Source information
U7 small nuclear RNA: a 61-nucleotide RNA from Lipotes vexillifer.
RNA sequence: AAGUGUAUGGCUCUUGUAGAAUUUGUCUAGCAGGUUUUCUGGUUCUCACCAGAAAACUUCC
Numbered sequence: 001a002a003g004u005g006u007a008u009g010g011c012u013c014u015u016g017u018a019g020a021a022u023u024u025g026u027c028u029a030g031c032a033g034g035u036u037u038u039c040u041g042g043u044u045c046u047c048a049c050c051a052g053a054a055a056a057c058u059u060c061c
Stems, first nucleotide, its partner, number of pairs: 033058011
Dot-bracket structure: ................................(((((((((((....)))))))))))...